RNA sequence: CCACGUGAUUGGCUGACGUGUAGUGAGUGAAACCCGGACGCGUGAGGUGACUGCGGCCUAGGGCCGUUCGUCACAGCGUGACGCCGGCACCGCCGGCCAAUCCCCAGCAGUCACCCGGCCCGCGGGCUCGUCGGACUCGUCCGACCGACGCCCCUUCCGCCCUCGGGCGGGGGGAGUCGCCCGCGGGCCGUUCCCU
Dot-bracket structure: .............((..((..............................))..))(.((.(....(.(((..............)))..)..).)).).................((((((((((((..(((((..........))))).............................))))))))))))......
The family of this 196-nucleotide RNA from Streptomycetaceae bacterium MP113-05 is "Actinobacteria sRNA Ms_IGR-5". The family's RNA type in Rfam is small RNA.